[Rfam]
RNA: TPP riboswitch aptamer (THI element)
RNA sequence: AGCUAUAGCUAGGGGUGUCCGAAACCAGUCGGGCUGAGAACAUACCCUUGCACCUGAGUCUGGGUAAUGCCAGCGGAGGGAAGCUGUUUAUGAUAGGA
Numbered sequence: 001a002g003c004u005a006u007a008g009c010u011a012g013g014g015g016u017g018u019c020c021g022a023a024a025c026c027a028g029u030c031g032g033g034c035u036g037a038g039a040a041c042a043u044a045c046c047c048u049u050g051c052a053c054c055u056g057a058g059u060c061u062g063g064g065u066a067a068u069g070c071c072a073g074c075g076g077a078g079g080g081a082a083g084c085u086g087u088u089u090a091u092g093a094u095a096g097g098a
Stems, first nucleotide, its partner, number of pairs: 006086005011048004016042001017034005053079003060073004